[Rfam]
RNA sequence: CAAGCACAGGCAAUGGCACUGGAAGAAUUCACGGGUGACAUUGAUCCAUCCCCGUGGUCUCUUAGUGGCAUCACUGGUGCUGG
Numbered sequence: 001c002a003a004g005c006a007c008a009g010g011c012a013a014u015g016g017c018a019c020u021g022g023a024a025g026a027a028u029u030c031a032c033g034g035g036u037g038a039c040a041u042u043g044a045u046c047c048a049u050c051c052c053c054g055u056g057g058u059c060u061c062u063u064a065g066u067g068g069c070a071u072c073a074c075u076g077g078u079g080c081u082g083g
Base pairs, nucleotide, nucleotide: 003081004080005079006078007077009075010074013071014070015069017067018066020064021063022062023060025059026058029057030056031055032054033053034052